[Rfam]
RNA: Small nucleolar RNA SNORD91 family
Organism: Dipodomys ordii
RNA sequence: CUUAGGAGUCAAUGAUGUUUUAAUUCAAAAUGUCUGAACCUGUCUGAGGCAUCUUAAUGAUGCAGCUUGUGUGGUGCUGAGACUUCUCUGUCA
Numbered sequence: 001c002u003u004a005g006g007a008g009u010c011a012a013u014g015a016u017g018u019u020u021u022a023a024u025u026c027a028a029a030a031u032g033u034c035u036g037a038a039c040c041u042g043u044c045u046g047a048g049g050c051a052u053c054u055u056a057a058u059g060a061u062g063c064a065g066c067u068u069g070u071g072u073g074g075u076g077c078u079g080a081g082a083c084u085u086c087u088c089u090g091u092c093a
Stems, first nucleotide, its partner, number of pairs: 004087007